[Rfam]
RNA sequence: CACUCAUCGAGACCAGUCGAGGGAAAGGCCCGACGACGCUGGGGCAACCGCUGCAAACGCAGAAUGGUGCCAACUCCUACAGGGCGCAUUUCCCUGACAGAUGAGAG
Numbered sequence: 001c002a003c004u005c006a007u008c009g010a011g012a013c014c015a016g017u018c019g020a021g022g023g024a025a026a027g028g029c030c031c032g033a034c035g036a037c038g039c040u041g042g043g044g045c046a047a048c049c050g051c052u053g054c055a056a057a058c059g060c061a062g063a064a065u066g067g068u069g070c071c072a073a074c075u076c077c078u079a080c081a082g083g084g085c086g087c088a089u090u091u092c093c094c095u096g097a098c099a100g101a102u103g104a105g106a107g
Stems, first nucleotide, its partner, number of pairs: 001107001003105006013042005021031003026078003043071004048067002051062003075099001080096005
RNA: SAM riboswitch aptamer (S box leader)